Record summary
Rfam assigns this 93-nucleotide RNA from Corynebacterium frankenforstense to the family "SAM riboswitch aptamer (S box leader)". Its family is annotated with regulation of gene expression in the Gene Ontology. The family's consensus secondary structure is taken from published work. A search with the family's covariance model found it, with a score of 61 bits.
RNA sequence: CACCUAUUCAGAGCGGCCGAGAGACCCGGCUCGAUGACGCCGCAGCAACCCCCAGAGCCCUGGAACGGUGCUAACGCCGAGGUUCGAUAGGAA
Number, nucleotide and partner (000 for none) at each position: 001c000002a000003c091004c090005u089006a088007u087008u086009c000010a000011g000012a000013g043014c042015g041016g040017c039018c000019g000020a000021g032022a031023g030024a000025c000026c000027c079028g078029g077030c023031u022032c021033g000034a000035u000036g000037a000038c000039g017040c016041c015042g014043c013044a072045g071046c070047a069048a000049c068050c067051c000052c063053c062054a061055g000056a000057g000058c000059c000060c000061u054062g053063g052064a000065a000066c000067g050068g049069u047070g046071c045072u044073a000074a000075c000076g085077c029078c028079g027080a000081g000082g000083u000084u000085c076086g008087a007088u006089a005090g004091g003092a000093a000